[Rfam]
This 132-nucleotide sequence from Sharpea azabuensis belongs to the Rfam family "Ribosomal protein L20 leader". The source organism's lineage runs through Bacteria, Bacillota, Erysipelotrichia, Coprobacillaceae and Sharpea. It scores 62 bits against the family's covariance model. This family is a putative r-protein leader autoregulatory structure found in B. subtilis and other low-GC Gram-positive bacteria. It is located in the 5' untranslated regions of mRNAs encoding initiation factor 3 followed by ribosomal proteins L35 and L20 (infC-rpmI-rplT). A Rho-independent transcription terminator structure that is probably involved in regulation is included at the 3' end.

RNA sequence: AGUGGAAAGAAGAAGUGCUCGCUUCUCGCCUGACUGAUGGAUGUUGGUAGGCAAAUGUCACUGAAGAUAUUAAUGUAUUAAUUCUUUGGGAUGUUUAUGCGGGUGCUUAUGCACCUGCUUUUUUAUUGUUAA
Numbered sequence: 001a002g003u004g005g006a007a008a009g010a011a012g013a014a015g016u017g018c019u020c021g022c023u024u025c026u027c028g029c030c031u032g033a034c035u036g037a038u039g040g041a042u043g044u045u046g047g048u049a050g051g052c053a054a055a056u057g058u059c060a061c062u063g064a065a066g067a068u069a070u071u072a073a074u075g076u077a078u079u080a081a082u083u084c085u086u087u088g089g090g091a092u093g094u095u096u097a098u099g100c101g102g103g104u105g106c107u108u109a110u111g112c113a114c115c116u117g118c119u120u121u122u123u124u125a126u127u128g129u130u131a132a
Base pairs, nucleotide, nucleotide: 011026012025013024014023015022016021028052029051030050034047035046036045037044038043099118100117101116102115103114104113105112106111
Dot-bracket structure: ..........((((((....)))))).(((...(((((....)))))..)))..............................................((((((((....))))))))..............